[Rfam]
RNA sequence: ACAAAGGCUCUUUUAAGAGCCACUUAAAUACUUGAGAAGCGAGUUU
Dot-bracket structure: .....((((((....)))))).........................
This 46-nucleotide RNA sequence from Synaphobranchus kaupii belongs to the Rfam family "Histone 3' UTR stem-loop". From the family's description: The mRNAs of metazoan histone genes lack a poly-A tail. 3' end processing occurs at a site between a highly conserved stem-loop (modelled by this family) and a purine rich region around 20 nts downstream (the histone downstream element, or HDE). The stem-loop is bound by a 31 kDa stem-loop binding protein (SLBP - also termed the histone hairpin binding protein, or HBP). Together with U7 snRNA binding of the HDE, SLBP binding nucleate s the formation of the processing complex. Rfam classes the family as a cis-regulatory element. For this family Rfam cites "The sequence of the stem and flanking sequences at the 3' end of histone mRNA are critical determinants for the binding of the stem-loop binding protein" (Williams and Marzluff, Nucleic Acids Res, 1995). Lineage of the source: Eukaryota > Teleostomi > Actinopterygii > Synaphobranchinae > Synaphobranchus. The match comes from Rfam's covariance-model search (34 bits).